A member of the RNA family "SAM riboswitch aptamer (S box leader)" from Alteribacillus iranensis, 117 nucleotides long. Rfam links the family to the GO term regulation of gene expression. Taxonomically the source falls in Alteribacillus (Bacteria, Bacillati, Bacillota, Caryophanales). Pairs were carried over by alignment from the consensus structure, which is taken from published work.
RNA sequence: CUUUUAUCAAGAGCGGUGGAGGAAACUGGUCCUAUGAGCCCGCGGCAACCAUUUAUAAGCUGAUUGCUUUAUAAAAAGGUGCCCAAUCCAGCAGACACGAUGUCUGAAAGAUAAAAG
Numbered sequence: 001c002u003u004u005u006a007u008c009a010a011g012a013g014c015g016g017u018g019g020a021g022g023a024a025a026c027u028g029g030u031c032c033u034a035u036g037a038g039c040c041c042g043c044g045g046c047a048a049c050c051a052u053u054u055a056u057a058a059g060c061u062g063a064u065u066g067c068u069u070u071a072u073a074a075a076a077a078g079g080u081g082c083c084c085a086a087u088c089c090a091g092c093a094g095a096c097a098c099g100a101u102g103u104c105u106g107a108a109a110g111a112u113a114a115a116a117g
Stems, first nucleotide, its partner, number of pairs: 001117008013043004021032003026091004044083004049079002052074002087109001092106006